This 125-nucleotide sequence from Emergencia timonensis belongs to the Rfam family "Ribosomal protein L10 leader". A search with the family's covariance model found it, with a score of 58 bits. NCBI's taxonomy places the organism under Bacteria, Bacillati, Bacillota, Clostridia, Emergencia. This family is a putative r-protein leader autoregulatory structure found in B. subtilis and other low-GC Gram-positive bacteria. It is located in the 5' untranslated regions of mRNAs encoding ribosomal proteins L10 and L12 (rplJ-rplL). A Rho-independent transcription terminator structure that is probably involved in regulation is included at the 3' end.
[Rfam]
RNA sequence: UAUAACUUUGAGAUUUAACCGUAGACAGCGGGUGCAGCGCGAAAGCGCAAGGCUUAAUUCCCCGCCGAGGUACAAUAUAUAGAUAUUGACCCUGUCUACCGUGACGGGGUUAUUUUAUUGAGUAC
Numbered sequence: 001u002a003u004a005a006c007u008u009u010g011a012g013a014u015u016u017a018a019c020c021g022u023a024g025a026c027a028g029c030g031g032g033u034g035c036a037g038c039g040c041g042a043a044a045g046c047g048c049a050a051g052g053c054u055u056a057a058u059u060c061c062c063c064g065c066c067g068a069g070g071u072a073c074a075a076u077a078u079a080u081a082g083a084u085a086u087u088g089a090c091c092c093u094g095u096c097u098a099c100c101g102u103g104a105c106g107g108g109g110u111u112a113u114u115u116u117a118u119u120g121a122g123u124a125c
Stems, first nucleotide, its partner, number of pairs: 028065005034053002089110008